RNA sequence: GACUUACGUGGGCCGGCGAGCUUAAGCCGUCGAGGCGGAGGCGAAGCGAAAGCGAGUCCGAAUAGGGCGACUGAGUCGGUCCGCGUAGACCCGAAACCGGGCGAGCUAGCCCUGGCCAGGCUGAAGCGCGGGUGAAACCGCGUGGAGGGCCGAACCGGUAAGAGAUGCAAAUCUUUCGGAUGAGCUGGGGUUAGGAGUGAAAAGCUAACCGAGCCCGGAGAUAGCUGGUU
Numbered sequence: 001g002a003c004u005u006a007c008g009u010g011g012g013c014c015g016g017c018g019a020g021c022u023u024a025a026g027c028c029g030u031c032g033a034g035g036c037g038g039a040g041g042c043g044a045a046g047c048g049a050a051a052g053c054g055a056g057u058c059c060g061a062a063u064a065g066g067g068c069g070a071c072u073g074a075g076u077c078g079g080u081c082c083g084c085g086u087a088g089a090c091c092c093g094a095a096a097c098c099g100g101g102c103g104a105g106c107u108a109g110c111c112c113u114g115g116c117c118a119g120g121c122u123g124a125a126g127c128g129c130g131g132g133u134g135a136a137a138c139c140g141c142g143u144g145g146a147g148g149g150c151c152g153a154a155c156c157g158g159u160a161a162g163a164g165a166u167g168c169a170a171a172u173c174u175u176u177c178g179g180a181u182g183a184g185c186u187g188g189g190g191u192u193a194g195g196a197g198u199g200a201a202a203a204g205c206u207a208a209c210c211g212a213g214c215c216c217g218g219a220g221a222u223a224g225c226u227g228g229u230u
Base pairs, nucleotide, nucleotide: 005087006086007085008084009083010082011081012080013079014078015077016076017075020042021041022040023039026036027035028034046053047052056068057067058066059065090228091227093225097218098217099216100215101214102213106194107193108192109191110190111189112188113187114186115185116184117182119151120150121149122148126143127142128141129140130139131138155179156178157177160175161174162173163172196206197205198204
This 230-nucleotide part of an RNA from Oceanithermus profundus belongs to the Rfam family "Bacterial large subunit ribosomal RNA". The match comes from Rfam's covariance-model search (2756 bits). The family's consensus secondary structure is taken from published work. The literature on the family includes a 2001 paper in Science by Yusupov et al., "Crystal structure of the ribosome at 5.5 A resolution".